[Rfam]
RNA sequence: UCGACUGUACUCUACAGGAUCAUGUUCGUAGUUAAUAUGUUCUGAUCUCUCAGUACCUUAGAUGGGAAACCAGCUGGUUGAUGACACGAUGUACGCCAUCCGUAAAGGGAGGCUGUGGUCGCCACACCUUUUAGGUGUGGUAGACCCUCGAUGAUCUUGCGUAGCUAGUACUCGCCAUCUGCGCCCUUGUGCCAGGUGGUUGAUGUCUAGCUUUCUUGCAAGGAUGGUCGUACCGUCUGACAGCC
Numbered sequence: 001u002c003g004a005c006u007g008u009a010c011u012c013u014a015c016a017g018g019a020u021c022a023u024g025u026u027c028g029u030a031g032u033u034a035a036u037a038u039g040u041u042c043u044g045a046u047c048u049c050u051c052a053g054u055a056c057c058u059u060a061g062a063u064g065g066g067a068a069a070c071c072a073g074c075u076g077g078u079u080g081a082u083g084a085c086a087c088g089a090u091g092u093a094c095g096c097c098a099u100c101c102g103u104a105a106a107g108g109g110a111g112g113c114u115g116u117g118g119u120c121g122c123c124a125c126a127c128c129u130u131u132u133a134g135g136u137g138u139g140g141u142a143g144a145c146c147c148u149c150g151a152u153g154a155u156c157u158u159g160c161g162u163a164g165c166u167a168g169u170a171c172u173c174g175c176c177a178u179c180u181g182c183g184c185c186c187u188u189g190u191g192c193c194a195g196g197u198g199g200u201u202g203a204u205g206u207c208u209a210g211c212u213u214u215c216u217u218g219c220a221a222g223g224a225u226g227g228u229c230g231u232a233c234c235g236u237c238u239g240a241c242a243g244c245c
Stems, first nucleotide, its partner, number of pairs: 002039002006034001009032003016026002019023001046069001048067005054061001074243003091233005096227006105158004115146001118145002122140001165218001167216002170213001

Description
ACEA small nucleolar RNA U3: a 245-nucleotide RNA from Tieghemiomyces parasiticus. Gene Ontology terms of the family: RNA processing and nucleolus. The family's RNA type in Rfam is C/D-box small nucleolar RNA. Small nucleolar RNAs (snoRNAs) are involved in the processing and modification of rRNA in the nucleolus. There are two main classes of snoRNAs: the box C/D class, and the box H/ACA class. U3 snoRNA is a member of the box C/D class. Its Rfam clan is "U3 clan". For this family Rfam cites "Comparative analysis of eukaryotic U3 snoRNA" (Marz and Stadler, RNA Biol, 2010). Lineage of the source: Eukaryota > Kickxellomycota > Dimargaritomycetes > Dimargaritaceae > Tieghemiomyces. The family's consensus secondary structure is taken from published work.